[Rfam]
About this RNA:
The record is a 106-nucleotide sequence from Poseidonibacter parvus, which matches "TPP riboswitch aptamer (THI element)" in Rfam. Taxonomically the source falls in Poseidonibacter (Bacteria, Pseudomonadati, Campylobacterota, Epsilonproteobacteria). It scores 67 bits against the family's covariance model.

RNA sequence: CUUUAAUACAUAGGGAGCUUAUAAAUAGGCUGAGAGGGAGUUUAAAACUUCGACCUUUGAACCUGAUUUAGGUAAUGCUAACGUAGGGAUUUGUUUUUUACAAAUG
Numbered sequence: 001c002u003u004u005a006a007u008a009c010a011u012a013g014g015g016a017g018c019u020u021a022u023a024a025a026u027a028g029g030c031u032g033a034g035a036g037g038g039a040g041u042u043u044a045a046a047a048c049u050u051c052g053a054c055c056u057u058u059g060a061a062c063c064u065g066a067u068u069u070a071g072g073u074a075a076u077g078c079u080a081a082c083g084u085a086g087g088g089a090u091u092u093g094u095u096u097u098u099u100a101c102a103a104a105u106g
Base pairs, nucleotide, nucleotide: 006094007093008092010090012056013055014054017030018029019028020027021026037051038050039049040048041047062087063086064085065084068081069080070079071078